[Rfam]
RNA sequence: UGUCAAUUAAAUAGUAUGCCAUAGACAGUAGGUGCACAGUAUAUCAUAUACUGAUGCGUAAUUUGAUGAUAAUCACCCUACCGAGGUUGAAUUAAUAACGGUUAAUCACCCUUUGUAUGUCUAUGUGCAUGCAAAGGGUUUAAUUUUUGCAUU
Numbered sequence: 001u002g003u004c005a006a007u008u009a010a011a012u013a014g015u016a017u018g019c020c021a022u023a024g025a026c027a028g029u030a031g032g033u034g035c036a037c038a039g040u041a042u043a044u045c046a047u048a049u050a051c052u053g054a055u056g057c058g059u060a061a062u063u064u065g066a067u068g069a070u071a072a073u074c075a076c077c078c079u080a081c082c083g084a085g086g087u088u089g090a091a092u093u094a095a096u097a098a099c100g101g102u103u104a105a106u107c108a109c110c111c112u113u114u115g116u117a118u119g120u121c122u123a124u125g126u127g128c129a130u131g132c133a134a135a136g137g138g139u140u141u142a143a144u145u146u147u148u149g150c151a152u153u
Stems, first nucleotide, its partner, number of pairs: 028081005034057003109138012
RNA: Ribosomal protein L10 leader